[Rfam]
Shown here is a 67-nucleotide RNA sequence, a member of the family "S15-Flavobacteria ribosomal protein leader".

RNA sequence: UAUAUUUGCACCGUCUAAUUAAAAGUUAAUUAGGCUACAUAAGAAUCAUUUUAACAAUAUUGGCAUG
Numbered sequence: 001u002a003u004a005u006u007u008g009c010a011c012c013g014u015c016u017a018a019u020u021a022a023a024a025g026u027u028a029a030u031u032a033g034g035c036u037a038c039a040u041a042a043g044a045a046u047c048a049u050u051u052u053a054a055c056a057a058u059a060u061u062g063g064c065a066u067g
Base pairs, nucleotide, nucleotide: 014034015033016032017031018030019029020028021027